Rfam assigns this 227-nucleotide RNA from Paenibacillus sp. NFR01 to the family "T-box leader". Rfam describes the family as follows. Uncharged tRNA acts as the effector for transcription antitermination of genes in the T-box leader family. By type it is a cis-regulatory leader. Taxonomically the source falls in Paenibacillus (Bacteria, Bacillati, Bacilli, Paenibacillaceae).

[Rfam]
RNA sequence: UGGUAUACGUUGAAUGAGCGCAGUAGCAGCUUAGUCCCUGUUACAGAAAGCCGGGGGAAGAUGGAACCCGGACAUACGAGGGCUGCGAAUUACACUCAGGAGUAUCUUGGGUAAUGCCAAGCGGAGCGAAGCGAACGAUAACUCGCUGAAAAGUGGUACGGACACAGCCUUCAUGGGGGUGUUCGUGCAAUUUGGGUGGUAACACGGUUAAUCCAAUCGUCCCUGUG
Numbered sequence: 001u002g003g004u005a006u007a008c009g010u011u012g013a014a015u016g017a018g019c020g021c022a023g024u025a026g027c028a029g030c031u032u033a034g035u036c037c038c039u040g041u042u043a044c045a046g047a048a049a050g051c052c053g054g055g056g057g058a059a060g061a062u063g064g065a066a067c068c069c070g071g072a073c074a075u076a077c078g079a080g081g082g083c084u085g086c087g088a089a090u091u092a093c094a095c096u097c098a099g100g101a102g103u104a105u106c107u108u109g110g111g112u113a114a115u116g117c118c119a120a121g122c123g124g125a126g127c128g129a130a131g132c133g134a135a136c137g138a139u140a141a142c143u144c145g146c147u148g149a150a151a152a153g154u155g156g157u158a159c160g161g162a163c164a165c166a167g168c169c170u171u172c173a174u175g176g177g178g179g180u181g182u183u184c185g186u187g188c189a190a191u192u193u194g195g196g197u198g199g200u201a202a203c204a205c206g207g208u209u210a211a212u213c214c215a216a217u218c219g220u221c222c223c224u225g226u227g
Base pairs, nucleotide, nucleotide: 007103008102015098016097017096018095026086027085028084029083030082031081039076040075041074051071052070053069054068055067106121107120108119109118110117122137123136156188157187158186159185160184161183162182163181164180165179194223195222196221204220205219206218207217208216